mir-302 microRNA precursor family: a 66-nucleotide sequence from Cnephaeus nilssonii.

RNA sequence: CCACCACUUUAACAUGGAGGCAUUUGCUGGACAGACGGAAAUAAGUGCUUCCAUGUUUUAGUGUGG
Numbered sequence: 001c002c003a004c005c006a007c008u009u010u011a012a013c014a015u016g017g018a019g020g021c022a023u024u025u026g027c028u029g030g031a032c033a034g035a036c037g038g039a040a041a042u043a044a045g046u047g048c049u050u051c052c053a054u055g056u057u058u059u060a061g062u063g064u065g066g
Base pairs, nucleotide, nucleotide: 001066002065005063006062007061008060011057012056013055014054015053016052017051018050019049020048021047022046023045024044025043026042028040
A search with the family's covariance model found it, with a score of 63 bits.
Taxonomically the source falls in Cnephaeus (Eukaryota, Craniata, Mammalia, Eutheria).
For this family Rfam cites "Human embryonic stem cells express a unique set of microRNAs" (Suh et al., Dev Biol, 2004).